Rfam assigns this 124-nucleotide RNA from Averrhoa carambola to the family "Plastid-psbA-1 3UTR RNA". Taxonomically the source falls in Averrhoa (Eukaryota, Viridiplantae, Magnoliopsida, Gunneridae). Pairs were carried over by alignment from the consensus structure, which was predicted with LocARNA. Plastid psbA-1 is a non-coding RNA (ncRNA) present in plastids. It was identified in inverted repeat sequences in the 3 prime untranslate region (3UTR) of photosystem II quinone-binding protein (psbA). Clan: Plastid-psbA 3UTR RNA clan. The sequence is in the family's curated seed alignment.

[Rfam]
RNA sequence: GUUGAAGUUCCAUCUACAAAUGGAUAAAACUUCUUUAGUGUAUAUCAGUUCUUGAAAAUAAAAAAAUAAAGGAGCAAUAACCAAUUUCUUGAUAUAUCAAGGGGUUGGUUAUUGCUCCUUUAUU
Numbered sequence: 001g002u003u004g005a006a007g008u009u010c011c012a013u014c015u016a017c018a019a020a021u022g023g024a025u026a027a028a029a030c031u032u033c034u035u036u037a038g039u040g041u042a043u044a045u046c047a048g049u050u051c052u053u054g055a056a057a058a059u060a061a062a063a064a065a066a067u068a069a070a071g072g073a074g075c076a077a078u079a080a081c082c083a084a085u086u087u088c089u090u091g092a093u094a095u096a097u098c099a100a101g102g103g104g105u106u107g108g109u110u111a112u113u114g115c116u117c118c119u120u121u122a123u124u
Base pairs, nucleotide, nucleotide: 009024010023011022012021013020068121069120070119071118072117073116074115075114076113077112078111079110080109082107083106084105086103087102088101089100090099